[Rfam]
RNA sequence: UGGCACCUACGGGGGCCUUUAACAUAGCUGGUCCAAAGACAAGAACCUAAGGACCACGCACGCUAAACGGAAGACAGAAA
Numbered sequence: 001u002g003g004c005a006c007c008u009a010c011g012g013g014g015g016c017c018u019u020u021a022a023c024a025u026a027g028c029u030g031g032u033c034c035a036a037a038g039a040c041a042a043g044a045a046c047c048u049a050a051g052g053a054c055c056a057c058g059c060a061c062g063c064u065a066a067a068c069g070g071a072a073g074a075c076a077g078a079a080a
Base pairs, nucleotide, nucleotide: 002017003016004015006014007013008012027057029056030055031054032053033052
This 80-nucleotide RNA belongs to the Rfam family "L2-Alphaproteobacteria ribosomal protein leader". The base pairs follow the family's consensus structure, which is taken from published work. The sequence is in the family's curated seed alignment. On this family, see Eckert and Weinberg, BMC Microbiol 2020: "Discovery of 20 novel ribosomal leader candidates in bacteria and archaea". By type it is a cis-regulatory leader.